Small nucleolar RNA snoR97: a 103-nucleotide RNA sequence from Quercus lobata. Rfam 15.1 lists 862 matches to the family in 223 species. The source organism's lineage runs through Eukaryota, Viridiplantae, Streptophytina, Euphyllophyta and Quercus. A reference for the family is Marker et al. (2002), "Experimental RNomics: identification of 140 candidates for small non-messenger RNAs in the plant Arabidopsis thaliana", Curr Biol. Gene Ontology terms of the family: nucleolus and RNA processing.
[Rfam]
RNA sequence: AACCUGUUGUGGGAAUUGAGUCUGAAAAACUCAGACAUUGUUUAUUGUCAUCAGCUUCUUCUCCACAUUCACGAGAUUGGAGUAAAAUAACAGCACUACAUUC
Numbered sequence: 001a002a003c004c005u006g007u008u009g010u011g012g013g014a015a016u017u018g019a020g021u022c023u024g025a026a027a028a029a030c031u032c033a034g035a036c037a038u039u040g041u042u043u044a045u046u047g048u049c050a051u052c053a054g055c056u057u058c059u060u061c062u063c064c065a066c067a068u069u070c071a072c073g074a075g076a077u078u079g080g081a082g083u084a085a086a087a088u089a090a091c092a093g094c095a096c097u098a099c100a101u102u103c
Base pairs, nucleotide, nucleotide: 043095045093046092047091054083055082056081057080058079060076061075062074063073